[Rfam]
RNA sequence: AAGAAAGUGACUGCCGCCCCGCACAGGGGCGAAGCUAAUAGACCAAUAACAAAGCAAGUUUCAUGGAAGCGCAAAAACAUCAAACGGUUCUAUGACCGCCCAACCCAAGC
Numbered sequence: 001a002a003g004a005a006a007g008u009g010a011c012u013g014c015c016g017c018c019c020c021g022c023a024c025a026g027g028g029g030c031g032a033a034g035c036u037a038a039u040a041g042a043c044c045a046a047u048a049a050c051a052a053a054g055c056a057a058g059u060u061u062c063a064u065g066g067a068a069g070c071g072c073a074a075a076a077a078c079a080u081c082a083a084a085c086g087g088u089u090c091u092a093u094g095a096c097c098g099c100c101c102a103a104c105c106c107a108a109g110c
Stems, first nucleotide, its partner, number of pairs: 012073003015031006060065001093102002
The record is a 110-nucleotide RNA from Caballeronia glathei, which matches "Burkholderia sRNA Bp1_Cand684_SIPHT" in Rfam.
For this family Rfam cites "Computational discovery and RT-PCR validation of novel Burkholderia conserved and Burkholderia pseudomallei unique sRNAs" (Khoo et al., BMC Genomics, 2012).
The base pairs follow the family's consensus structure, which was predicted with RNAalifold.
It scores 54 bits against the family's covariance model.
The family's RNA type in Rfam is small RNA.